[Rfam]
Nucleotides: 061
Stems, first nucleotide, its partner, number of pairs: 017045011
Number, partner (000 for none) and nucleotide at each position: 001000u002000g003000c004000a005000a006000c007000a008000c009000c010000c011000a012000u013000c014000a015000a016000a017045g018044g019043a020042g021041u022040a023039g024038u025037u026036c027035c028000c029000c030000a031000c032000c033000g034000c035027g036026g037025a038024g039023u040022u041021a042020c043019u044018u045017u046000a047000c048000c049000a050000u051000a052000c053000u054000c055000u056000g057000a058000a059000u060000u061000u
A member of the RNA family "Plastid-psbN 5UTR RNA" from Cajanus cajan, 61 nucleotides long. A search with the family's covariance model found it, with a score of 76 bits. Lineage of the source: Eukaryota > Streptophyta > Gunneridae > rosids > Cajanus. The literature on the family includes a 2023 paper in Plant Commun by Richter et al., "Retrograde signaling in plants: A critical review focusing on the GUN pathway and beyond".